[Rfam]
RNA sequence: UAGUGUGACACAGGGAGCUGACCGGAGUCGGCUGAGAGGAGGCUGGAUCGCCUCGACCUGAGACCUGAUUUGGAUAAUGCCAACGUAGGGAUGAUGAUGAAAUUAUUU
Numbered sequence: 001u002a003g004u005g006u007g008a009c010a011c012a013g014g015g016a017g018c019u020g021a022c023c024g025g026a027g028u029c030g031g032c033u034g035a036g037a038g039g040a041g042g043c044u045g046g047a048u049c050g051c052c053u054c055g056a057c058c059u060g061a062g063a064c065c066u067g068a069u070u071u072g073g074a075u076a077a078u079g080c081c082a083a084c085g086u087a088g089g090g091a092u093g094a095u096g097a098u099g100a101a102a103u104u105a106u107u108u
Stems, first nucleotide, its partner, number of pairs: 006096002009093002011060004017032005039054005064089004070083004

TPP riboswitch aptamer (THI element): a 108-nucleotide RNA from Drancourtella sp. An57. Its family is annotated with thiamine pyrophosphate binding in the Gene Ontology. The literature on the family includes a 2003 paper in FEBS Lett by Kubodera et al., "Thiamine-regulated gene expression of Aspergillus oryzae thiA requires splicing of the intron containing a riboswitch-like domain in the 5'-UTR". NCBI's taxonomy places the organism under Bacteria, Bacillati, Eubacteriales, Oscillospiraceae, Drancourtella. The family's consensus secondary structure is taken from published work.